[Rfam]
RNA sequence: CCCCAUCCCUAGUUCAGUGCCACGUGUUUGAGCCACUAAUCCGAGAGAUGGGUUUGAGGAAAUACGGGG
Numbered sequence: 001c002c003c004c005a006u007c008c009c010u011a012g013u014u015c016a017g018u019g020c021c022a023c024g025u026g027u028u029u030g031a032g033c034c035a036c037u038a039a040u041c042c043g044a045g046a047g048a049u050g051g052g053u054u055u056g057a058g059g060a061a062a063u064a065c066g067g068g069g
Stems, first nucleotide, its partner, number of pairs: 001069004

Small nucleolar RNA SNORD66: a 69-nucleotide RNA sequence from Kryptolebias marmoratus. The family's consensus secondary structure was predicted with RNAalifold. A reference for the family is Huttenhofer et al. (2001), "RNomics: an experimental approach that identifies 201 candidates for novel, small, non-messenger RNAs in mouse", EMBO J. Its family is annotated with RNA processing and nucleolus in the Gene Ontology. The family has 20 seed sequences and 1,346 matches in Rfam 15.1. Rfam describes the family as follows. snoRNA HBII-142 is part of the C/D family of snoRNAs.